[Rfam]
RNA sequence: GGGUCGGCAAAUAGCUCAGCGGUUACUUCUCAAAGAUUUACUGAAUUGAUAUUCAAUGAAUCCUUCGGGGUUCGAAACCCGCGGGCGCCAUCUGACCCUUUU
Dot-bracket structure: .((((((......((((.((((....(((............................................)))..)))))))).....)))))).....
RNA: Vault RNA
Organism: Aquarana catesbeiana